[Rfam]
RNA: Stem loopII regulatory element in POLB
Organism: Castor canadensis
RNA sequence: AGCCCAGUAGGAGUCUUAAUUUAUUUCUUAAUCUUUGCUGUUAAAAUGUCUUUGGUGUUUUUAAAUGAUUGCUUCUUCUCCAUGCG
Numbered sequence: 001a002g003c004c005c006a007g008u009a010g011g012a013g014u015c016u017u018a019a020u021u022u023a024u025u026u027c028u029u030a031a032u033c034u035u036u037g038c039u040g041u042u043a044a045a046a047u048g049u050c051u052u053u054g055g056u057g058u059u060u061u062u063a064a065a066u067g068a069u070u071g072c073u074u075c076u077u078c079u080c081c082a083u084g085c086g
Base pairs, nucleotide, nucleotide: 009079010078011077012076016064017063018062019061025055026054031049032048034046035045036044